Rfam assigns this 73-nucleotide sequence from Drosophila willistoni to the family "mir-2 microRNA precursor family". The literature on the family includes a 2001 paper in Science by Lee and Ambros, "An extensive class of small RNAs in Caenorhabditis elegans". NCBI's taxonomy places the organism under Eukaryota, Mandibulata, Altocrustacea, Panorpida, Sophophora.
[Rfam]
RNA sequence: GAGCUCACAAAGUGGUUGUGAAAUGCAUUAUUUGCUUUAUCCAGCAUAUCACAGCCAGCUUUGAUGAGCUCUG
Numbered sequence: 001g002a003g004c005u006c007a008c009a010a011a012g013u014g015g016u017u018g019u020g021a022a023a024u025g026c027a028u029u030a031u032u033u034g035c036u037u038u039a040u041c042c043a044g045c046a047u048a049u050c051a052c053a054g055c056c057a058g059c060u061u062u063g064a065u066g067a068g069c070u071c072u073g
Stems, first nucleotide, its partner, number of pairs: 005067003008063005013057009027047002